Rfam assigns this 77-nucleotide RNA from Flavobacterium pallidum to the family "Flavo-1 RNA".
NCBI's taxonomy places the organism under Bacteria, Pseudomonadati, Bacteroidota, Flavobacteriia, Flavobacterium.
It is annotated as a small RNA.
RNA sequence: GAAUUGCGUUAGGGAUGAAAGCGGCAUCCUUUUCCUGACGCAGGAAGGAAAAGAUAUAGCGGACAGCCCGGGCCGCA
Numbered sequence: 001g002a003a004u005u006g007c008g009u010u011a012g013g014g015a016u017g018a019a020a021g022c023g024g025c026a027u028c029c030u031u032u033u034c035c036u037g038a039c040g041c042a043g044g045a046a047g048g049a050a051a052a053g054a055u056a057u058a059g060c061g062g063a064c065a066g067c068c069c070g071g072g073c074c075g076c077a
Stems, first nucleotide, its partner, number of pairs: 012069003016065002021060002026055003032050005